[Rfam]
IS605-orfB-I RNA: a 235-nucleotide RNA. The family's RNA type in Rfam is small RNA.
RNA sequence: UCUGUAUAUAACGAUAUUAUAUCCAAGAGAAUAUAGUCGCUCCCUGUACAGAAUAGGUUUUGAGUAAUAUGUUUAGUGAGAUUGAUUUAGUGAGAUAAUGAAAGUUAUUGAGGUUGAAAUAUCAUAAAACAGGGAUAACCGUAAGUCCUUAAGAAUUAUUAUUCUUUAAAAUUAAUCUUUUAAAAUUAUGAAAGUCAAAUUUGGUGCUUUUGUAUAUUUUAAGAGUUACGGUUGA
Number, nucleotide and partner (000 for none) at each position: 001u052002c051003u050004g049005u048006a047007u046008a045009u000010a041011a000012c039013g038014a037015u036016a000017u000018u035019a034020u033021a032022u031023c029024c000025a000026a000027g000028a000029g023030a000031a022032u021033a020034u019035a018036g015037u014038c013039g012040c000041u010042c000043c000044c000045u008046g007047u006048a005049c004050a003051g002052a001053a000054u000055a000056g000057g000058u000059u000060u000061u000062g000063a000064g000065u000066a000067a000068u000069a000070u131071g130072u129073u128074u000075a000076g000077u124078g123079a122080g000081a120082u119083u118084g000085a000086u000087u000088u000089a000090g000091u000092g000093a000094g000095a000096u000097a000098a000099u000100g000101a000102a000103a000104g000105u000106u000107a114108u000109u000110g000111a000112g000113g000114u107115u000116g000117a000118a083119a082120u081121a000122u079123c078124a077125u000126a000127a000128a073129a072130c071131a070132g149133g148134g147135a146136u145137a000138a232139c231140c230141g229142u228143a227144a172145g136146u135147c134148c133149u132150u000151a166152a165153g164154a163155a162156u000157u000158a000159u000160u000161a000162u155163u154164c153165u152166u151167u000168a000169a000170a000171a000172u144173u000174a000175a000176u000177c225178u224179u223180u222181u221182a220183a219184a218185a217186u216187u214188a213189u212190g211191a210192a209193a208194g207195u206196c000197a000198a000199a000200u000201u000202u000203g000204g000205u000206g195207c194208u193209u192210u191211u190212g189213u188214a187215u000216a186217u185218u184219u183220u182221a181222a180223g179224a178225g177226u000227u143228a142229c141230g140231g139232u138233u000234g000235a000